RNA sequence: UUUGCUAGUCUAUCUCUUGCCGGGCCUUCCUCAAGACCCUAAGCACAAUUUUUGGGCACCCGUCGCAGCAACGGCGGGUG
Numbered sequence: 001u002u003u004g005c006u007a008g009u010c011u012a013u014c015u016c017u018u019g020c021c022g023g024g025c026c027u028u029c030c031u032c033a034a035g036a037c038c039c040u041a042a043g044c045a046c047a048a049u050u051u052u053u054g055g056g057c058a059c060c061c062g063u064c065g066c067a068g069c070a071a072c073g074g075c076g077g078g079u080g
Base pairs, nucleotide, nucleotide: 022039023038024037026035027034028033058079059078060077061076062075063074064073065072
Source information
A member of the RNA family "SmY spliceosomal RNA" from Caenorhabditis briggsae, 80 nucleotides long. A reference for the family is MacMorris et al. (2007), "A novel family of C. elegans snRNPs contains proteins associated with trans-splicing", RNA. The family's consensus secondary structure is taken from published work.